Shown here is an 82-nucleotide sequence from Trichonephila clavipes, a member of the family "Vault RNA". It scores 46 bits against the family's covariance model. The family's consensus secondary structure is taken from published work.

RNA sequence: GCGUAGGCUUAGUCGUGUGGUUACUUCGUAUAUUCGACACAACCUCGAGUGAGUAUGACCACAGACGCCAUCCUACGUUUUG
Numbered sequence: 001g002c003g004u005a006g007g008c009u010u011a012g013u014c015g016u017g018u019g020g021u022u023a024c025u026u027c028g029u030a031u032a033u034u035c036g037a038c039a040c041a042a043c044c045u046c047g048a049g050u051g052a053g054u055a056u057g058a059c060c061a062c063a064g065a066c067g068c069c070a071u072c073c074u075a076c077g078u079u080u081u082g
Base pairs, nucleotide, nucleotide: 002077003076004075005074006073007072012066013065014064017062018061019060020059026058027057028056029055